[Rfam]
Nucleotides: 101
Stems, first nucleotide, its partner, number of pairs: 005097006012091002020046006048082003051078002055076003061069002
Number, partner (000 for none) and nucleotide at each position: 001000u002000c003000g004000u005097c006096a007095g008094a009093a010092u011000c012091g013090g014000g015000a016000g017000a018000a019000a020046c021045c022044g023043g024042c025041g026000c027000a028000g029000c030000c031000c032000u033000c034000g035000g036000g037000c038000a039000a040000a041025c042024g043023c044022u045021g046020g047000u048082g049081c050080c051078g052077a053000a054000g055076g056075a057074g058000c059000a060000a061069c062068c063000g064000c065000c066000c067000c068062g069061g070000u071000a072000a073000a074057c075056u076055c077052u078051c079000a080050g081049g082048c083000a084000a085000a086000g087000g088000g089000a090013c091012c092010a093009u094008u095007c096006u097005g098000g099000c100000a101000a
A member of the RNA family "Glycine riboswitch aptamer" from Ketogulonicigenium robustum, 101 nucleotides long.
NCBI's taxonomy places the organism under Bacteria, Pseudomonadota, Alphaproteobacteria, Rhodobacterales, Ketogulonicigenium.